[Rfam]
RNA sequence: AUACCACAGUGUGCAGUCGCUGUUUACCAUUGCUGGUAGACAGAGGAAAGUCCGAACAUCACAGGACAGGGUGCCGGCCGAGAGCUCUGCUCAAGUCCGGGAGUACAGGACUGAAAACCUGUACUACAGAUAGUGCAACAGAAAACAGACCGCUCCGGAAUUCCGGAGUAAGGGUGAAACGGUGGUGUAAGAGACCACCAGAUGCGUCAGUAAUGGCGCAUGCUUGGCAAACCUCCCCGAUGCAAGGCUAAAUAGGGCAGCUUUUCCAAAAAGGAAAAAGAGCGGUCCGUUCAAUUCUGAACAGAGAGUUGCCGGGUGAGCCGCAUCAGAUAAAUGACUGCAACUCUCCUCCGGUCACGACCGGAAGAGAGAACAGAAUUCGGCUUACAUCUGCGGUAUCGGC
Numbered sequence: 001a002u003a004c005c006a007c008a009g010u011g012u013g014c015a016g017u018c019g020c021u022g023u024u025u026a027c028c029a030u031u032g033c034u035g036g037u038a039g040a041c042a043g044a045g046g047a048a049a050g051u052c053c054g055a056a057c058a059u060c061a062c063a064g065g066a067c068a069g070g071g072u073g074c075c076g077g078c079c080g081a082g083a084g085c086u087c088u089g090c091u092c093a094a095g096u097c098c099g100g101g102a103g104u105a106c107a108g109g110a111c112u113g114a115a116a117a118c119c120u121g122u123a124c125u126a127c128a129g130a131u132a133g134u135g136c137a138a139c140a141g142a143a144a145a146c147a148g149a150c151c152g153c154u155c156c157g158g159a160a161u162u163c164c165g166g167a168g169u170a171a172g173g174g175u176g177a178a179a180c181g182g183u184g185g186u187g188u189a190a191g192a193g194a195c196c197a198c199c200a201g202a203u204g205c206g207u208c209a210g211u212a213a214u215g216g217c218g219c220a221u222g223c224u225u226g227g228c229a230a231a232c233c234u235c236c237c238c239g240a241u242g243c244a245a246g247g248c249u250a251a252a253u254a255g256g257g258c259a260g261c262u263u264u265u266c267c268a269a270a271a272a273g274g275a276a277a278a279a280g281a282g283c284g285g286u287c288c289g290u291u292c293a294a295u296u297c298u299g300a301a302c303a304g305a306g307a308g309u310u311g312c313c314g315g316g317u318g319a320g321c322c323g324c325a326u327c328a329g330a331u332a333a334a335u336g337a338c339u340g341c342a343a344c345u346c347u348c349c350u351c352c353g354g355u356c357a358c359g360a361c362c363g364g365a366a367g368a369g370a371g372a373a374c375a376g377a378a379u380u381c382g383g384c385u386u387a388c389a390u391c392u393g394c395g396g397u398a399u400c401g402g403c
Stems, first nucleotide, its partner, number of pairs: 001399005007393003011388001012342007020043009048386003052383005057242004069238003073235001074100004101127001102125008128234002133232002135228002150173002152169007181199006201223001202221008246322004256313006295306004
About this RNA
The record is a 403-nucleotide RNA sequence from Prosthecochloris aestuarii, which matches "Bacterial RNase P class A" in Rfam. From the family's description: Ribonuclease P (RNase P) is a ubiquitous endoribonuclease, found in archaea, bacteria and eukarya as well as chloroplasts and mitochondria. Its best characterised activity is the generation of mature 5'-ends of tRNAs by cleaving the 5'-leader elements of precursor-tRNAs. By type it is a ribozyme. Rfam links the family to the GO terms dimeric ribonuclease P complex, ribonuclease P activity and tRNA processing.